[Rfam]
RNA sequence: GGGCCAGCUUAGUCUAGUGGUUACUUCGUGUCCAAUACACAUUUAACUUCUAGCAGUUCGAGACCCGCAAGCACUGCCUGGCCUUUAA
Numbered sequence: 001g002g003g004c005c006a007g008c009u010u011a012g013u014c015u016a017g018u019g020g021u022u023a024c025u026u027c028g029u030g031u032c033c034a035a036u037a038c039a040c041a042u043u044u045a046a047c048u049u050c051u052a053g054c055a056g057u058u059c060g061a062g063a064c065c066c067g068c069a070a071g072c073a074c075u076g077c078c079u080g081g082c083c084u085u086u087a088a
Stems, first nucleotide, its partner, number of pairs: 002083006012072002015069001017068004025062004

Background:
Shown here is an 88-nucleotide RNA from Salvator merianae, a member of the family "Vault RNA". About the family: This family of RNAs are found as part of the enigmatic vault ribonucleoprotein complex. A reference for the family is Stadler et al. (2009), "Evolution of Vault RNAs", Mol Biol Evol. The family has 73 seed sequences and 2,873 matches in Rfam 15.1. A search with the family's covariance model found it, with a score of 53 bits. Lineage of the source: Eukaryota > Bilateria > Chordata > Teleostomi > Salvator. The base pairs follow the family's consensus structure, which is taken from published work.